Shown here is a 79-nucleotide RNA, a member of the family "Nucleoid-associated noncoding RNA 4 (CssrE)". Pairs were carried over by alignment from the consensus structure, which is taken from published work. It scores 64 bits against the family's covariance model. From the family's description: In E. coli small RNA transcribed from repeated extragenic palindromic element (REP325) called nucleoid-associated ncRNA 4 (nRNA4) collaborates HU protein in condensing the DNA. The secondary structure but not the sequence of the RNA is important in nucleoid condensation. Also identified in Shigella as CssrE. Rfam links the family to the GO terms bacterial nucleoid DNA packaging, protein binding and bacterial nucleoid. For this family Rfam cites "An integrated approach for finding overlooked genes in Shigella" (Peng et al., PLoS One, 2011).

[Rfam]
RNA sequence: GGUUGGAUAAGGCGCUCGCGCCGCAUCCAACGUAGGGAGCACAUUGCCUGAUGCGACGCUUAACACGUCUUAUCAGGCA
Numbered sequence: 001g002g003u004u005g006g007a008u009a010a011g012g013c014g015c016u017c018g019c020g021c022c023g024c025a026u027c028c029a030a031c032g033u034a035g036g037g038a039g040c041a042c043a044u045u046g047c048c049u050g051a052u053g054c055g056a057c058g059c060u061u062a063a064c065a066c067g068u069c070u071u072a073u074c075a076g077g078c079a
Stems, first nucleotide, its partner, number of pairs: 002031007011022004046078008055069004